RNA sequence: GCCGAAGUGGUGGAAUUGGUAGACACGCCAUCUUGAGGGGGUGGUGCUCUUCUGAGCGUACGAGUUCAAGUCUCGUCUUCGGCA
Numbered sequence: 001g002c003c004g005a006a007g008u009g010g011u012g013g014a015a016u017u018g019g020u021a022g023a024c025a026c027g028c029c030a031u032c033u034u035g036a037g038g039g040g041g042u043g044g045u046g047c048u049c050u051u052c053u054g055a056g057c058g059u060a061c062g063a064g065u066u067c068a069a070g071u072c073u074c075g076u077c078u079u080c081g082g083c084a
Base pairs, nucleotide, nucleotide: 001083002082003081004080005079006078007077010026011025012024028044029043030042031041032040060076061075062074063073064072
Rfam assigns this 84-nucleotide sequence from Aliidiomarina soli to the family "tRNA". Pairs were carried over by alignment from the consensus structure, which is taken from published work. About the family: Transfer RNA (tRNA) molecules are approximately 80 nucleotides in length. Rfam classes the family as a transfer RNA.